[Rfam]
RNA sequence: UUAAGCAGAAGAGGAGCACUACCCAGGUAGAUGUUUUGUGGAGCCUCAACUCCCAAACAAAACAUUGAGGGGGAGUAGUGCCGAGAUAAACCAAAGAUGAGGCUUUGAUUUAUCGGUUGAUUGGGCUGAAUCCUAUCAACUGUCAUCAGAAUCGACUGAUGAAGAGCUUCUGAGGAA
Numbered sequence: 001u002u003a004a005g006c007a008g009a010a011g012a013g014g015a016g017c018a019c020u021a022c023c024c025a026g027g028u029a030g031a032u033g034u035u036u037u038g039u040g041g042a043g044c045c046u047c048a049a050c051u052c053c054c055a056a057a058c059a060a061a062a063c064a065u066u067g068a069g070g071g072g073g074a075g076u077a078g079u080g081c082c083g084a085g086a087u088a089a090a091c092c093a094a095a096g097a098u099g100a101g102g103c104u105u106u107g108a109u110u111u112a113u114c115g116g117u118u119g120a121u122u123g124g125g126c127u128g129a130a131u132c133c134u135a136u137c138a139a140c141u142g143u144c145a146u147c148a149g150a151a152u153c154g155a156c157u158g159a160u161g162a163a164g165a166g167c168u169u170c171u172g173a174g175g176a177a
Stems, first nucleotide, its partner, number of pairs: 006172006016081007024073001030066008085114006092107005115141007123134003143162007
RNA: Lysine riboswitch aptamer